[Rfam]
RNA sequence: AUGAACCUCGGUGGUCCGGGGUGCAGGCUUCAAACCUGUAGCUGCCUAGCGGCAGAGUGGUUCAAUUCCACCUUUCGGGC
Numbered sequence: 001a002u003g004a005a006c007c008u009c010g011g012u013g014g015u016c017c018g019g020g021g022u023g024c025a026g027g028c029u030u031c032a033a034a035c036c037u038g039u040a041g042c043u044g045c046c047u048a049g050c051g052g053c054a055g056a057g058u059g060g061u062u063c064a065a066u067u068c069c070a071c072c073u074u075u076c077g078g079g080c
Stems, first nucleotide, its partner, number of pairs: 001074001003072001006021006022040006042055005057071004
Selenocysteine transfer RNA: an 80-nucleotide sequence from Sinocyclocheilus rhinocerous. The organism belongs to Sinocyclocheilus, within Eukaryota.